mir-9243 microRNA precursor family: an 85-nucleotide RNA from Cnephaeus nilssonii. It scores 85 bits against the family's covariance model. Its family is annotated with miRNA-mediated post-transcriptional gene silencing and RISC complex in the Gene Ontology. Rfam 15.1 lists 31 matches to the family in 4 species.
RNA sequence: CCGUGCACAAAUUCAUGCACUGGGCUUCUAAUAUAUAUAUAUAUAUAUAUACUAGAAGCCCGGUGCACGAAAUUUGUGCAUGGCA
Number, nucleotide and partner (000 for none) at each position: 001c083002c082003g000004u080005g079006c078007a077008c076009a075010a074011a073012u071013u070014c069015a000016u067017g066018c065019a064020c063021u062022g061023g060024g059025c058026u057027u056028c055029u054030a053031a000032u051033a050034u049035a000036u000037a000038u000039a000040u000041a000042u000043a000044u000045a000046u000047a000048u000049a034050u033051a032052c000053u030054a029055g028056a027057a026058g025059c024060c023061c022062g021063g020064u019065g018066c017067a016068c000069g014070a013071a012072a000073u011074u010075u009076g008077u007078g006079c005080a004081u000082g002083g001084c000085a000